[Rfam]
RNA sequence: AAGCUCGACGAUGAGGAUCUAGUAUCCUACAUCCUCGCCGGGCUUGACUUCGAUUACGACCCAGUGGUUUCAGCGGUUGCAGCCCGCGUGGAACCAAUCUCUGUCUCAGAGUUGAUCACUCAACUGAUCAGCUUCGAGC
Numbered sequence: 001a002a003g004c005u006c007g008a009c010g011a012u013g014a015g016g017a018u019c020u021a022g023u024a025u026c027c028u029a030c031a032u033c034c035u036c037g038c039c040g041g042g043c044u045u046g047a048c049u050u051c052g053a054u055u056a057c058g059a060c061c062c063a064g065u066g067g068u069u070u071c072a073g074c075g076g077u078u079g080c081a082g083c084c085c086g087c088g089u090g091g092a093a094c095c096a097a098u099c100u101c102u103g104u105c106u107c108a109g110a111g112u113u114g115a116u117c118a119c120u121c122a123a124c125u126g127a128u129c130a131g132c133u134u135c136g137a138g139c
Stems, first nucleotide, its partner, number of pairs: 004138005090106003
A member of the RNA family "Small nucleolar RNA Z247" from Oryza glumipatula, 139 nucleotides long.
Gene Ontology terms of the family: nucleolus and RNA processing.
A search with the family's covariance model found it, with a score of 65 bits.
The literature on the family includes a 2003 paper in Nucleic Acids Res by Chen et al., "The high diversity of snoRNAs in plants: identification and comparative study of 120 snoRNA genes from Oryza sativa".
The family's RNA type in Rfam is C/D-box small nucleolar RNA.
Pairs were carried over by alignment from the consensus structure, which was predicted with PFOLD.